[Rfam]
RNA: Bacterial small signal recognition particle RNA
Organism: Secundilactobacillus collinoides
RNA sequence: GUAAGGCCUUGAAGCAAGGGCGGACUAACGAAUCGUGUCAGGUCCGGAAGGAAGCAGCACUAAGUUUGCUCUGCUUUGUGCUUCAAGUUGAUAUGAUCUU
Number, nucleotide and partner (000 for none) at each position: 001g000002u000003a000004a094005g000006g092007c000008c090009u086010u085011g084012a083013a082014g081015c078016a000017a077018g076019g075020g074021c073022g072023g000024a000025c068026u000027a066028a065029c064030g000031a000032a000033u000034c000035g060036u059037g058038u057039c000040a000041g000042g000043u052044c051045c050046g000047g000048a000049a000050g045051g044052a043053a000054g000055c000056a000057g038058c037059a036060c035061u000062a000063a000064g029065u028066u027067u000068g025069c000070u000071c000072u022073g021074c020075u019076u018077u017078g015079u000080g000081c014082u013083u012084c011085a010086a009087g000088u000089u000090g008091a000092u006093a000094u004095g000096a000097u000098c000099u000100u000